Record summary
The record is a 127-nucleotide RNA sequence from Bos taurus, which matches "Small nucleolar RNA SNORA40" in Rfam. The family has 28 seed sequences and 2,550 matches in Rfam 15.1. The snoRNA ACA 40 belongs to the H/ACA family of snoRNAs and guides the pseudouridylation of 28S rRNA subunit at position U4565. NB This family has a high threshold value to exclude a large number of closely related sequences that do not appear to have conserved H and ACA boxes, and may be pseudogenes. For this family Rfam cites "Mapping to nucleotide resolution of pseudouridine residues in large subunit ribosomal RNAs from representative eukaryotes, prokaryotes, archaebacteria, mitochondria and chloroplasts" (Ofengand and Bakin, J Mol Biol, 1997).

[Rfam]
RNA sequence: AGCACUUGUGUUUGUUUUUGUUAAGCUUGUGAGCAAAGACUUAUAGACAGGUGCAAAAAUAAACCCUCUUUUGCAACCCAGAACUCAUUGUUUAGUAUGAGUUUUGAUACAGGUAAGAAGGAACAUG
Numbered sequence: 001a002g003c004a005c006u007u008g009u010g011u012u013u014g015u016u017u018u019u020g021u022u023a024a025g026c027u028u029g030u031g032a033g034c035a036a037a038g039a040c041u042u043a044u045a046g047a048c049a050g051g052u053g054c055a056a057a058a059a060u061a062a063a064c065c066c067u068c069u070u071u072u073g074c075a076a077c078c079c080a081g082a083a084c085u086c087a088u089u090g091u092u093u094a095g096u097a098u099g100a101g102u103u104u105u106g107a108u109a110c111a112g113g114u115a116a117g118a119a120g121g122a123a124c125a126u127g
Stems, first nucleotide, its partner, number of pairs: 002054008011045001014040008026031001066121002069118005079106010